[Rfam]
RNA sequence: AACAGUAAAAGGCAAACCAUUUGAAAAUUUGGGACGCAAAGCUAUCAGGUCUAAGGCAUAGAGAGAAAGAAUGCUAUGACGGCUGGGCCGCCUGA
Numbered sequence: 001a002a003c004a005g006u007a008a009a010a011g012g013c014a015a016a017c018c019a020u021u022u023g024a025a026a027a028u029u030u031g032g033g034a035c036g037c038a039a040a041g042c043u044a045u046c047a048g049g050u051c052u053a054a055g056g057c058a059u060a061g062a063g064a065g066a067a068a069g070a071a072u073g074c075u076a077u078g079a080c081g082g083c084u085g086g087g088c089c090g091c092c093u094g095a
Stems, first nucleotide, its partner, number of pairs: 012037002017032003022027001041088003046085003049080003056074004
A member of the RNA family "c-di-GMP-I riboswitch aptamer" from Jeotgalibacillus soli, 95 nucleotides long. A search with the family's covariance model found it, with a score of 67 bits. Rfam's curators write: GEMM was predicted in a large-scale screen for bacterial structured RNA regulatory elements.